[Rfam]
A member of the RNA family "Small nucleolar RNA SNORD25" from Camellia sinensis, 87 nucleotides long. Taxonomically the source falls in Camellia sinensis (Eukaryota, Streptophytina, Euphyllophyta, Camellia). The family's consensus secondary structure was predicted with PFOLD. Clan: SNORD25 clan. It scores 64 bits against the family's covariance model.

RNA sequence: UGCAACAGUGAUGAGCCAAUGCAAGCCUGUAAUGAUCUGCGGAUAUGAUCGCAAAUUCAUUAUGAACAUCUAAGGGACUGAGUUGCC
Numbered sequence: 001u002g003c004a005a006c007a008g009u010g011a012u013g014a015g016c017c018a019a020u021g022c023a024a025g026c027c028u029g030u031a032a033u034g035a036u037c038u039g040c041g042g043a044u045a046u047g048a049u050c051g052c053a054a055a056u057u058c059a060u061u062a063u064g065a066a067c068a069u070c071u072a073a074g075g076g077a078c079u080g081a082g083u084u085g086c087c
Stems, first nucleotide, its partner, number of pairs: 002086005